[Rfam]
RNA sequence: GGCUUCGGGACAAGUGGCGCUCAUUCCCAAGGACCACGAGUGCGGAGAAAGAACCCGACCAAGCCCCACCCCUCCCGCCCGUCGGCCAAACUCACUCCUGCGAGUGAAUAUGCCCAACUCGGCUGGAUUCGUGACGGGUUGCCUGACUUACGCUCAGCGCAACGCAGUACCGAGCCGCAGCGCUCACCACCCCACCAGACAUGCGACGGCCCCCGCCGGGACGGCAAUCCCGAUGCGAGGGCCUGACCACCGAGGAAGCAGGACCUUCCUG
Number, nucleotide and partner (000 for none) at each position: 001g000002g000003c000004u000005u000006c000007g251008g250009g000010a000011c000012a000013a000014g000015u000016g079017g078018c077019g076020c000021u000022c000023a000024u000025u000026c000027c000028c000029a000030a000031g000032g000033a000034c000035c000036a000037c000038g000039a000040g000041u000042g000043c000044g000045g000046a000047g000048a000049a000050a000051g000052a000053a000054c000055c000056c000057g000058a000059c000060c000061a000062a000063g000064c000065c000066c000067c000068a000069c000070c000071c000072c000073u000074c000075c000076c019077g018078c017079c016080c000081g000082u000083c000084g000085g000086c000087c000088a000089a000090a000091c000092u107093c106094a105095c104096u103097c102098c000099u000100g000101c000102g097103a096104g095105u094106g093107a092108a000109u000110a000111u000112g000113c000114c000115c000116a000117a000118c000119u000120c000121g000122g181123c180124u179125g178126g000127a000128u000129u000130c000131g000132u000133g000134a000135c000136g000137g000138g000139u000140u000141g000142c000143c000144u000145g000146a000147c000148u000149u000150a000151c000152g000153c000154u000155c000156a000157g000158c000159g000160c000161a000162a000163c000164g000165c000166a000167g000168u000169a000170c000171c000172g000173a000174g000175c000176c000177g000178c125179a124180g123181c122182g000183c000184u000185c000186a000187c000188c000189a000190c000191c000192c000193c000194a000195c000196c000197a000198g000199a000200c000201a000202u000203g000204c000205g000206a000207c000208g243209g242210c241211c240212c239213c000214c237215g236216c235217c000218g231219g230220g229221a228222c000223g000224g000225c000226a000227a000228u221229c220230c219231c218232g000233a000234u000235g216236c215237g214238a000239g212240g211241g210242c209243c208244u000245g000246a000247c000248c000249a000250c008251c007252g000253a000254g269255g268256a267257a266258g265259c000260a000261g000262g000263a000264c000265c258266u257267u256268c255269c254270u000271g000
Shown here is a 271-nucleotide sequence from Streptomyces humidus, a member of the family "Streptomyces sRNA 4677". The family's RNA type in Rfam is small RNA. The match comes from Rfam's covariance-model search (171 bits). For this family Rfam cites "Complex intra-operonic dynamics mediated by a small RNA in Streptomyces coelicolor" (Hindra et al., PLoS One, 2014). Located in the intergenic region between anti-sigma factor SCO4677 gene and a putative regulatory protein gene SCO4676. scr4677 expression requires the SCO4677 activity and scr4677 sRNA itself seem to affect the levels of the SCO4676-associated transcripts.